[Rfam]
Shown here is a 211-nucleotide sequence from Providencia sneebia, a member of the family "SraG RNA". Its family is annotated with sRNA-mediated gene silencing and mRNA binding in the Gene Ontology. Taxonomically the source falls in Providencia sneebia (Bacteria, Pseudomonadati, Morganellaceae, Providencia). A reference for the family is Argaman et al. (2001), "Novel small RNA-encoding genes in the intergenic regions of Escherichia coli", Curr Biol. Pairs were carried over by alignment from the consensus structure, which was predicted with PFOLD. From the family's description: This RNA was discovered in E. coli during a large scale screen.
RNA sequence: CUCUUUACCACAGCCUCGCGACUAAUGAGAAUACUGAUCUUCAAAUUAUCAGUGCUCUCAUUAGCCGCGCGAAUCGGUUGUAGCUAAAGAGGCUUCAUUAAAAACAAUUAAUUACACUUUACAGCUUAGCAUUUAAGUUAAGUAUAAUUCGAGCAUUACUUCAACUUUAAACACAACUUUUAGAAGAAAAGGGGCCUAUUGGCCCCUUUCC
Numbered sequence: 001c002u003c004u005u006u007a008c009c010a011c012a013g014c015c016u017c018g019c020g021a022c023u024a025a026u027g028a029g030a031a032u033a034c035u036g037a038u039c040u041u042c043a044a045a046u047u048a049u050c051a052g053u054g055c056u057c058u059c060a061u062u063a064g065c066c067g068c069g070c071g072a073a074u075c076g077g078u079u080g081u082a083g084c085u086a087a088a089g090a091g092g093c094u095u096c097a098u099u100a101a102a103a104a105c106a107a108u109u110a111a112u113u114a115c116a117c118u119u120u121a122c123a124g125c126u127u128a129g130c131a132u133u134u135a136a137g138u139u140a141a142g143u144a145u146a147a148u149u150c151g152a153g154c155a156u157u158a159c160u161u162c163a164a165c166u167u168u169a170a171a172c173a174c175a176a177c178u179u180u181u182a183g184a185a186g187a188a189a190a191g192g193g194g195c196c197u198a199u200u201g202g203c204c205c206c207u208u209u210c211c
Base pairs, nucleotide, nucleotide: 001089002088004086010081011080012079017071018070019069020068022064023063024062025061026060027059028058191206192205193204194203195202196201